[Rfam]
RNA: Small nucleolar RNA SNORD101
RNA sequence: GCUUGUAUGAUGAUUCACAUUUUGUCGGAUACCCCUUCACUCUCCAAUGAGUGAAAUCCCACUUCUGACACGC
Numbered sequence: 001g002c003u004u005g006u007a008u009g010a011u012g013a014u015u016c017a018c019a020u021u022u023u024g025u026c027g028g029a030u031a032c033c034c035c036u037u038c039a040c041u042c043u044c045c046a047a048u049g050a051g052u053g054a055a056a057u058c059c060c061a062c063u064u065c066u067g068a069c070a071c072g073c
Stems, first nucleotide, its partner, number of pairs: 001073002004070002